nrdJ RNA: a 77-nucleotide RNA from Streptomyces netropsis.
[Rfam]
RNA sequence: AUCAGCCCGGCGCGCCCCGCGCGCACGGGUGGAAGACACACAUCGCGCCACGGAAGAAUUGGGCGCAUUAGGGCGUU
Numbered sequence: 001a002u003c004a005g006c007c008c009g010g011c012g013c014g015c016c017c018c019g020c021g022c023g024c025a026c027g028g029g030u031g032g033a034a035g036a037c038a039c040a041c042a043u044c045g046c047g048c049c050a051c052g053g054a055a056g057a058a059u060u061g062g063g064c065g066c067a068u069u070a071g072g073g074c075g076u077u
Stems, first nucleotide, its partner, number of pairs: 005030005012024004045066005050060001
The match comes from Rfam's covariance-model search (50 bits). It is annotated as a small RNA. Lineage of the source: Bacteria > Actinomycetota > Actinomycetes > Streptomycetaceae > Streptomyces.